[Rfam]
RNA: Small nucleolar RNA U6-53/MBII-28
RNA sequence: UGCCUGUGAUGACUCGCCAUGCUAAUACCGACCUCCGGCAAGGCACAUGGCUCUGCUCUGGGGGCAUGAGUUAAAAGUCUUCUCUCAAGGUCUGAGGCAC
Numbered sequence: 001u002g003c004c005u006g007u008g009a010u011g012a013c014u015c016g017c018c019a020u021g022c023u024a025a026u027a028c029c030g031a032c033c034u035c036c037g038g039c040a041a042g043g044c045a046c047a048u049g050g051c052u053c054u055g056c057u058c059u060g061g062g063g064g065c066a067u068g069a070g071u072u073a074a075a076a077g078u079c080u081u082c083u084c085u086c087a088a089g090g091u092c093u094g095a096g097g098c099a100c
Base pairs, nucleotide, nucleotide: 001099002098003097004096039055040054042052043051